[Rfam]
RNA: chrB-a RNA
RNA sequence: ACCAUGGGGUUUGCGACCACCCCGUGAGGCGCAAGCCGCAGCAUCGCAUCCCAAACCCUAUGUCCAAGGAUGCAUGCUAUG
Numbered sequence: 001a002c003c004a005u006g007g008g009g010u011u012u013g014c015g016a017c018c019a020c021c022c023c024g025u026g027a028g029g030c031g032c033a034a035g036c037c038g039c040a041g042c043a044u045c046g047c048a049u050c051c052c053a054a055a056c057c058c059u060a061u062g063u064c065c066a067a068g069g070a071u072g073c074a075u076g077c078u079a080u081g
Stems, first nucleotide, its partner, number of pairs: 005024006046073006